[Rfam]
RNA sequence: AAAGCAGAGAUUGUGUGUAUCGACGCUGUGCGAAUUUUCAUGCACUUUGCUCGAAAGAGUUCUCUGCGACAACGAUUUCCAGGGGAAGAUGGGCAGUUGUCUUUCAAUUUUUCCAUUGAAAUUUUUCAACAAUCAUCUUCUCCAAAUUC
Numbered sequence: 001a002a003a004g005c006a007g008a009g010a011u012u013g014u015g016u017g018u019a020u021c022g023a024c025g026c027u028g029u030g031c032g033a034a035u036u037u038u039c040a041u042g043c044a045c046u047u048u049g050c051u052c053g054a055a056a057g058a059g060u061u062c063u064c065u066g067c068g069a070c071a072a073c074g075a076u077u078u079c080c081a082g083g084g085g086a087a088g089a090u091g092g093g094c095a096g097u098u099g100u101c102u103u104u105c106a107a108u109u110u111u112u113c114c115a116u117u118g119a120a121a122u123u124u125u126u127c128a129a130c131a132a133u134c135a136u137c138u139u140c141u142c143c144a145a146a147u148u149c
Base pairs, nucleotide, nucleotide: 004067005066006065007064008063009062010061015045016044017043018042019041020040082143083142084141085140086139087138088137089136090135091134092133096130097129098128099127
This 149-nucleotide RNA from Handroanthus impetiginosus belongs to the Rfam family "small nucleolar RNA snoR135".
The literature on the family includes a 2009 paper in Nucleic Acids Res by Chen and Wu, "Mining small RNA sequencing data: a new approach to identify small nucleolar RNAs in Arabidopsis".
The base pairs follow the family's consensus structure, which was predicted with RNAalifold.
Lineage of the source: Eukaryota > Euphyllophyta > Spermatophyta > Bignoniaceae > Handroanthus.